[Rfam]
RNA: ASdes TB sRNA
Organism: Segniliparus rugosus
RNA sequence: AAAAGGACCGGAUCGGUCGCCCCGGUCACCACGAGGUAAUCGCGCAGCGCGAUGGCAUGGGCGCCUUCCUC
Number, nucleotide and partner (000 for none) at each position: 001a000002a000003a000004a066005g065006g064007a000008c059009c000010g000011g030012a000013u028014c000015g027016g026017u025018c024019g000020c000021c000022c000023c000024g018025g017026u016027c015028a013029c000030c011031a000032c000033g000034a000035g056036g000037u054038a053039a000040u052041c051042g050043c049044g048045c000046a000047g000048c044049g043050c042051g041052a040053u038054g037055g000056c035057a000058u000059g008060g000061g000062c000063g000064c006065c005066u004067u000068c000069c000070u000071c000